[Rfam]
RNA sequence: GUUGGUUACGGUGACAUGUGCCCCAUUACGUUGGGAGGGAAAAUGGUUGGGAUUCUGUGUGCCAUCGCUGGUGUGCUGACAAUUGCACUUCCUGUUCCGGUCAUUGUCUCCAAC
Numbered sequence: 001g002u003u004g005g006u007u008a009c010g011g012u013g014a015c016a017u018g019u020g021c022c023c024c025a026u027u028a029c030g031u032u033g034g035g036a037g038g039g040a041a042a043a044u045g046g047u048u049g050g051g052a053u054u055c056u057g058u059g060u061g062c063c064a065u066c067g068c069u070g071g072u073g074u075g076c077u078g079a080c081a082a083u084u085g086c087a088c089u090u091c092c093u094g095u096u097c098c099g100g101u102c103a104u105u106g107u108c109u110c111c112a113a114c
Stems, first nucleotide, its partner, number of pairs: 001114002004111002008107004013102003018097001020095002037077002040074001049063002
RNA: Potassium channel RNA editing signal